[Rfam]
RNA sequence: AUGACGGUUGUGGGAGAGUGCACUAGAAAAGCCACCGAAGGAGCAAGUUCCAAAAAGACCCUUGGAACUAAUCUCUCAGGUAGAGGAACCACAACAGGACG
Numbered sequence: 001a002u003g004a005c006g007g008u009u010g011u012g013g014g015a016g017a018g019u020g021c022a023c024u025a026g027a028a029a030a031g032c033c034a035c036c037g038a039a040g041g042a043g044c045a046a047g048u049u050c051c052a053a054a055a056a057g058a059c060c061c062u063u064g065g066a067a068c069u070a071a072u073c074u075c076u077c078a079g080g081u082a083g084a085g086g087a088a089c090c091a092c093a094a095c096a097g098g099a100c101g
Stems, first nucleotide, its partner, number of pairs: 007095007020032002034081003037077002041075003047068007

This 101-nucleotide RNA from Neobacillus mesonae belongs to the Rfam family "Glycine riboswitch aptamer". A search with the family's covariance model found it, with a score of 60 bits.